[Rfam]
RNA sequence: AAUUAUAGUUCGUAAGAAAAAGAGAAGCGAUCUAUUCUAUACCCGAAAGUACCAAUACGCAAUGGAG
Numbered sequence: 001a002a003u004u005a006u007a008g009u010u011c012g013u014a015a016g017a018a019a020a021a022g023a024g025a026a027g028c029g030a031u032c033u034a035u036u037c038u039a040u041a042c043c044c045g046a047a048a049g050u051a052c053c054a055a056u057a058c059g060c061a062a063u064g065g066a067g
Stems, first nucleotide, its partner, number of pairs: 003022002006019001009018003043065002049058003
Shown here is a 67-nucleotide RNA from Musa balbisiana, a member of the family "Plastid-clpP 5UTR RNA". The family's RNA type in Rfam is cis-regulatory element. Taxonomically the source falls in Musa (Eukaryota, Embryophyta, Spermatophyta, Magnoliopsida). Rfam's curators write: Plastid clpP is a non-coding RNA (ncRNA) recognised in plastids. It was found in the prime untranslated region (5UTR) of a protease complex subunit (clpP) in plastids, suggesting a posible cis-regulatory function. It scores 61 bits against the family's covariance model.